The record is a 147-nucleotide sequence from Candidatus Tokpelaia sp., which matches "Alphaproteobacterial sRNA ar45" in Rfam.
A reference for the family is del Val et al. (2012), "A survey of sRNA families in alpha-proteobacteria", RNA Biol.
[Rfam]
RNA sequence: GCCCAAAGUCGCACGUGCCUGUGGGUGUCCGCCGAGUCUCGAAAUGGUGAGAUAAACGGUAAGGUACCCGGAACUAACCGCUCCGGUCGCUUUUUCAGCCAACUGAAAAAGGGAGGACAUCUUGAAGCAACGACGGUGCGGGCCUUU
Numbered sequence: 001g002c003c004c005a006a007a008g009u010c011g012c013a014c015g016u017g018c019c020u021g022u023g024g025g026u027g028u029c030c031g032c033c034g035a036g037u038c039u040c041g042a043a044a045u046g047g048u049g050a051g052a053u054a055a056a057c058g059g060u061a062a063g064g065u066a067c068c069c070g071g072a073a074c075u076a077a078c079c080g081c082u083c084c085g086g087u088c089g090c091u092u093u094u095u096c097a098g099c100c101a102a103c104u105g106a107a108a109a110a111g112g113g114a115g116g117a118c119a120u121c122u123u124g125a126a127g128c129a130a131c132g133a134c135g136g137u138g139c140g141g142g143c144c145u146u147u
Base pairs, nucleotide, nucleotide: 001143002142003141004140008134009133010132011131016129017128018127023122024121025120026119027118028117029116030115031060032059033058034057037052038051039050040049041048068086069085070084071083072082087114088113090111093108094107095106096105097104098103

Notes
Rfam classes the family as a small RNA. The source organism's lineage runs through Bacteria, Pseudomonadati, Pseudomonadota, Hyphomicrobiales and Candidatus Tokpelaia. A search with the family's covariance model found it, with a score of 156 bits.